Shown here is a 90-nucleotide sequence from Streptomyces globosus, a member of the family "sodF sRNA". The family has 6 seed sequences and 336 matches in Rfam 15.1. NCBI's taxonomy places the organism under Bacteria, Bacillati, Actinomycetota, Streptomycetaceae, Streptomyces. The literature on the family includes a 2014 paper in Nucleic Acids Res by Kim et al., "Inverse regulation of Fe- and Ni-containing SOD genes by a Fur family regulator Nur through small RNA processed from 3'UTR of the sodF mRNA". It is annotated as a small RNA.
RNA sequence: CCGCCCGCCUCGUGAUCGUCUUCUCAACCUUCGCGACCGGGCGUUUCCAACGGCAGACCCCCGUGAGGACGUGACUCACGGGGGUCUGCU
Numbered sequence: 001c002c003g004c005c006c007g008c009c010u011c012g013u014g015a016u017c018g019u020c021u022u023c024u025c026a027a028c029c030u031u032c033g034c035g036a037c038c039g040g041g042c043g044u045u046u047c048c049a050a051c052g053g054c055a056g057a058c059c060c061c062c063g064u065g066a067g068g069a070c071g072u073g074a075c076u077c078a079c080g081g082g083g084g085u086c087u088g089c090u
Stems, first nucleotide, its partner, number of pairs: 002043006010036001012034004018028002052090016
Dot-bracket structure: .((((((..(.((((..((.......))..)))).).))))))........((((((((((((((((.......))))))))))))))))